[Rfam]
RNA sequence: GUAGGUUACAGCGACAUGACACCGAAAACUUUUCCCGGCAUGUUUAUCGGUAGACUGUGUGUUCUCGCCAGUGUCUUGACCAUUCCUCUUCUAGUUCCGGUAUUGUCAGCAAC
Numbered sequence: 001g002u003a004g005g006u007u008a009c010a011g012c013g014a015c016a017u018g019a020c021a022c023c024g025a026a027a028a029c030u031u032u033u034c035c036c037g038g039c040a041u042g043u044u045u046a047u048c049g050g051u052a053g054a055c056u057g058u059g060u061g062u063u064c065u066c067g068c069c070a071g072u073g074u075c076u077u078g079a080c081c082a083u084u085c086c087u088c089u090u091c092u093a094g095u096u097c098c099g100g101u102a103u104u105g106u107c108a109g110c111a112a113c
Stems, first nucleotide, its partner, number of pairs: 001113002004110001008106004014101002018097002021095002037077002040074001049063003
RNA: Potassium channel RNA editing signal